RNA sequence: ACGUGGGUUUUUUUUGAAUUGGAUGAUUAUGCAACCAUACAGGAACCUUACAUAAGCGCAAGUAGUUGAAUAGUAGAUCUAACCAGUAAAACUUUACUACCAGUGGGAUUAAUGGAACGAAUUAGACGUACUCGAUCUUGCAAGUAAAAUCUACGCACAGGAUAAGAAGUCCCAGGGGAAGCUAGGUACUUCUUUCCCGCUGCAAUAUUUUUCUAAAUUCUGUCUUGAUUUUCUUCAAAUUGCUUGAGGAAAAUAACUUCUAAGCAGUAUGCUGAGAAGGGUUGGCAUGGGAUGUUUGAAUUGUUUAGAUAAUAUAAAAGAGACAUCUAAUAUGACUAAUAAAAAAUAGUAAGUAUGGUAUACAAAAAAAAAUACAAAGAACGUGUAUAUAUAAAGGAAAAAUAACCUGCGAAUAUUGAGAAAAG
Numbered sequence: 001a002c003g004u005g006g007g008u009u010u011u012u013u014u015u016g017a018a019u020u021g022g023a024u025g026a027u028u029a030u031g032c033a034a035c036c037a038u039a040c041a042g043g044a045a046c047c048u049u050a051c052a053u054a055a056g057c058g059c060a061a062g063u064a065g066u067u068g069a070a071u072a073g074u075a076g077a078u079c080u081a082a083c084c085a086g087u088a089a090a091a092c093u094u095u096a097c098u099a100c101c102a103g104u105g106g107g108a109u110u111a112a113u114g115g116a117a118c119g120a121a122u123u124a125g126a127c128g129u130a131c132u133c134g135a136u137c138u139u140g141c142a143a144g145u146a147a148a149a150u151c152u153a154c155g156c157a158c159a160g161g162a163u164a165a166g167a168a169g170u171c172c173c174a175g176g177g178g179a180a181g182c183u184a185g186g187u188a189c190u191u192c193u194u195u196c197c198c199g200c201u202g203c204a205a206u207a208u209u210u211u212u213c214u215a216a217a218u219u220c221u222g223u224c225u226u227g228a229u230u231u232u233c234u235u236c237a238a239a240u241u242g243c244u245u246g247a248g249g250a251a252a253a254u255a256a257c258u259u260c261u262a263a264g265c266a267g268u269a270u271g272c273u274g275a276g277a278a279g280g281g282u283u284g285g286c287a288u289g290g291g292a293u294g295u296u297u298g299a300a301u302u303g304u305u306u307a308g309a310u311a312a313u314a315u316a317a318a319a320g321a322g323a324c325a326u327c328u329a330a331u332a333u334g335a336c337u338a339a340u341a342a343a344a345a346a347u348a349g350u351a352a353g354u355a356u357g358g359u360a361u362a363c364a365a366a367a368a369a370a371a372a373u374a375c376a377a378a379g380a381a382c383g384u385g386u387a388u389a390u391a392u393a394a395a396g397g398a399a400a401a402a403u404a405a406c407c408u409g410c411g412a413a414u415a416u417u418g419a420g421a422a423a424a425g
Stems, first nucleotide, its partner, number of pairs: 002411008011402004034359006056063002070078002085095002103236001105234003111229001113227001114225002119220003131202001134170001136167005144156002173199001175197005184191002245262001249260002269288007306329005372386004
About this RNA:
A member of the RNA family "RNA of unknown function 20" from Saccharomyces paradoxus, 425 nucleotides long. By type it is a non-coding RNA gene. A reference for the family is Kavanaugh and Dietrich (2009), "Non-coding RNA prediction and verification in Saccharomyces cerevisiae", PLoS Genet. NCBI's taxonomy places the organism under Eukaryota, Fungi, Saccharomycetaceae, Saccharomyces, Saccharomyces paradoxus.